psbNH RNA: a 59-nucleotide RNA sequence from Synechococcus sp. MIT S9508. Rfam classes the family as a cis-regulatory element. NCBI's taxonomy places the organism under Bacteria, Bacillati, Cyanophyceae, Synechococcaceae, Synechococcus.
[Rfam]
RNA sequence: GGGUGAAGUUCAGUUCCGAUACUGUAAGGGUCCCGACCCUGAAGAGGGUCGAUCCUGUC
Numbered sequence: 001g002g003g004u005g006a007a008g009u010u011c012a013g014u015u016c017c018g019a020u021a022c023u024g025u026a027a028g029g030g031u032c033c034c035g036a037c038c039c040u041g042a043a044g045a046g047g048g049u050c051g052a053u054c055c056u057g058u059c
Stems, first nucleotide, its partner, number of pairs: 027056005034051007